[Rfam]
RNA: sRNA-Xcc1
Organism: Xanthomonas campestris
RNA sequence: GGCCGGGCGGCGCGCAGCUAUACAACACCCGAAAGGGGAAAUCUGCGGGCCGUCUUCGAGCGGUGUUCAAGCGCCCGGCCGCCUCUCU
Numbered sequence: 001g002g003c004c005g006g007g008c009g010g011c012g013c014g015c016a017g018c019u020a021u022a023c024a025a026c027a028c029c030c031g032a033a034a035g036g037g038g039a040a041a042u043c044u045g046c047g048g049g050c051c052g053u054c055u056u057c058g059a060g061c062g063g064u065g066u067u068c069a070a071g072c073g074c075c076c077g078g079c080c081g082c083c084u085c086u087c088u
Base pairs, nucleotide, nucleotide: 001080002079003078004077005076006075007074008073009072013047014046015045016044019041028037029036030035049064050063051062052061